Notes:
Shown here is a 151-nucleotide RNA from Pseudomonas sp. HLS-6, a member of the family "PrrF RNA". The family's consensus secondary structure is taken from published work. Gene Ontology term of the family: sRNA-mediated gene silencing.
RNA sequence: UUGACAUGCAAAUGAUAAUUGUUAUUAUUGGAACCACUGGCCGCAAGGCUGGUUGGAUAAGCUGAAAAGCCUCGGUUCGGGCUCUCAAAUUAUCUCCUCAUCAGGCUAAUCACGGUUAUUGACCCGGCACAUUUUGCCGGGUCUUUUUUUG
Numbered sequence: 001u002u003g004a005c006a007u008g009c010a011a012a013u014g015a016u017a018a019u020u021g022u023u024a025u026u027a028u029u030g031g032a033a034c035c036a037c038u039g040g041c042c043g044c045a046a047g048g049c050u051g052g053u054u055g056g057a058u059a060a061g062c063u064g065a066a067a068a069g070c071c072u073c074g075g076u077u078c079g080g081g082c083u084c085u086c087a088a089a090u091u092a093u094c095u096c097c098u099c100a101u102c103a104g105g106c107u108a109a110u111c112a113c114g115g116u117u118a119u120u121g122a123c124c125c126g127g128c129a130c131a132u133u134u135u136g137c138c139g140g141g142u143c144u145u146u147u148u149u150u151g
Stems, first nucleotide, its partner, number of pairs: 034055001036053007063087003067083001070079001096105003121143008
Taxonomically the source falls in Pseudomonas (Bacteria, Pseudomonadati, Pseudomonadales, Pseudomonadaceae).
From the family's description: PrrF RNA is a small RNA involved in iron homeostasis and is found exclusively in Pseudomonas species.
By type it is a small RNA.
It scores 132 bits against the family's covariance model.
For this family Rfam cites "The Pseudomonas aeruginosa PrrF1 and PrrF2 small regulatory RNAs (sRNAs) promote 2-alkyl-4-quinolone production through redundant regulation of the antR mRNA" (Djapgne et al., J Bacteriol, 2018).